Record summary: The record is a 220-nucleotide sequence from Desulfobacter latus, which matches "HNH endonuclease-associated RNA and ORF (HEARO) RNA" in Rfam. The literature on the family includes a 2009 paper in Nature by Weinberg et al., "Exceptional structured noncoding RNAs revealed by bacterial metagenome analysis". It scores 129 bits against the family's covariance model. It is annotated as a non-coding RNA gene.
RNA sequence: GUCAACUACCCCUCCUGAAUCAAAGAUUCAGAAGGGGCUUGUAAAAGCCCAAGUUGACUAGCCUGAGUCUCUUUAUUGGGGACUACGUUCGGCAGGAAAUAGACACCCUCGGAUGUAUUCACUAGUCCGUUGCCCUGUCGCGGCCCUGUAAAAGCCCUGUGAGGUAGGGGCGGUCAACCGCAUUAUAAAGCCUGCUGAACAUUGGCGAAGUGAACCUUAC
Numbered sequence: 001g002u003c004a005a006c007u008a009c010c011c012c013u014c015c016u017g018a019a020u021c022a023a024a025g026a027u028u029c030a031g032a033a034g035g036g037g038c039u040u041g042u043a044a045a046a047g048c049c050c051a052a053g054u055u056g057a058c059u060a061g062c063c064u065g066a067g068u069c070u071c072u073u074u075a076u077u078g079g080g081g082a083c084u085a086c087g088u089u090c091g092g093c094a095g096g097a098a099a100u101a102g103a104c105a106c107c108c109u110c111g112g113a114u115g116u117a118u119u120c121a122c123u124a125g126u127c128c129g130u131u132g133c134c135c136u137g138u139c140g141c142g143g144c145c146c147u148g149u150a151a152a153a154g155c156c157c158u159g160u161g162a163g164g165u166a167g168g169g170g171c172g173g174u175c176a177a178c179c180g181c182a183u184u185a186u187a188a189a190g191c192c193u194g195c196u197g198a199a200c201a202u203u204g205g206c207g208a209a210g211u212g213a214a215c216c217u218u219a220c
Stems, first nucleotide, its partner, number of pairs: 001058007010037002012034002015031006038047003061206003065202001066084007087200010103138002107132001110129005115216001118214006140181004147176002152174001154171005